The record is a 141-nucleotide RNA from Drosophila rhopaloa, which matches "Small nucleolar RNA psi18S-1377" in Rfam. It scores 123 bits against the family's covariance model. The organism belongs to Sophophora, within Eukaryota. Its family is annotated with RNA processing and nucleolus in the Gene Ontology. By type it is an H/ACA-box small nucleolar RNA. The family's consensus secondary structure was predicted with RNAalifold. psi18S-1377 is a member of the H/ACA class of snoRNA. This family is responsible for guiding the modification of uridines 1377 and 1279 to pseudouridine in Drosophila 18S rRNA.
RNA sequence: CCGUUUUUGUGUUAUUCGCUAGACGUUUUUCAUAGUCCAGUGAUUGUCAAACAGAACGCAAACUAAAACGCAACUAAUCACUCCAUAAUGAUGCGUCUAAAUUAGCCAGGACUACAUCAUUACUAAAUGUUUGCAACACCU
Numbered sequence: 001c002c003g004u005u006u007u008u009g010u011g012u013u014a015u016u017c018g019c020u021a022g023a024c025g026u027u028u029u030u031c032a033u034a035g036u037c038c039a040g041u042g043a044u045u046g047u048c049a050a051a052c053a054g055a056a057c058g059c060a061a062a063c064u065a066a067a068a069c070g071c072a073a074c075u076a077a078u079c080a081c082u083c084c085a086u087a088a089u090g091a092u093g094c095g096u097c098u099a100a101a102u103u104a105g106c107c108a109g110g111a112c113u114a115c116a117u118c119a120u121u122a123c124u125a126a127a128u129g130u131u132u133g134c135a136a137c138a139c140c141u
Stems, first nucleotide, its partner, number of pairs: 002058006010049002016043005022037001087121005095112003